RNA: mir-19 microRNA precursor family
Organism: Muraenolepis orangiensis
RNA sequence: GUCUCUGGUCAGUUUCGCUGGUUUGCUGUCAGCUUUUGAACAUUCACGCUGUGCAAAUCCAUGCAAAACUGAUCAUGGAA
Number, nucleotide and partner (000 for none) at each position: 001g000002u000003c078004u077005c000006u075007g074008g073009u072010c071011a070012g069013u068014u067015u066016c000017g064018c063019u000020g060021g059022u057023u056024u055025g054026c053027u000028g000029u000030c000031a050032g049033c048034u000035u000036u000037u000038g000039a000040a000041c000042a000043u000044u000045c000046a000047c000048g033049c032050u031051g000052u000053g026054c025055a024056a023057a022058u000059c021060c020061a000062u000063g018064c017065a000066a015067a014068a013069c012070u011071g010072a009073u008074c007075a006076u000077g004078g003079a000080a000